[Rfam]
Rfam assigns this 91-nucleotide sequence from Coturnix japonica to the family "Small nucleolar RNA SNORD35". Its Rfam clan is "SNORD35 clan".
RNA sequence: UGCACAUGAUGCCAUUCUCACGAUGGUCUUCCAAGCCUCGUGGUGAAGGGGCUGUGACGACAACGCCACACGGCUUUGCUGAUGCGUGGCA
Numbered sequence: 001u002g003c004a005c006a007u008g009a010u011g012c013c014a015u016u017c018u019c020a021c022g023a024u025g026g027u028c029u030u031c032c033a034a035g036c037c038u039c040g041u042g043g044u045g046a047a048g049g050g051g052c053u054g055u056g057a058c059g060a061c062a063a064c065g066c067c068a069c070a071c072g073g074c075u076u077u078g079c080u081g082a083u084g085c086g087u088g089g090c091a
Base pairs, nucleotide, nucleotide: 001086002085003084004083

For this family Rfam cites "Intron-encoded, antisense small nucleolar RNAs: the characterization of nine novel species points to their direct role as guides for the 2'-O-ribose methylation of rRNAs" (Nicoloso et al., J Mol Biol, 1996). Lineage of the source: Eukaryota > Eumetazoa > Archosauria > Theropoda > Coturnix. The family's consensus secondary structure was predicted with PFOLD. By type it is a C/D-box small nucleolar RNA. Its family is annotated with nucleolus and RNA processing in the Gene Ontology. U35 is a C/D box snoRNA located in intron 6 of ribosomal protein L13A and intron 3 of ribosomal protein S11 in humans and at homologous positions in mouse and chicken ribosomal protein genes. U35 guides the methylation of 2'-O-ribose sites in 28S rRNA. It scores 72 bits against the family's covariance model.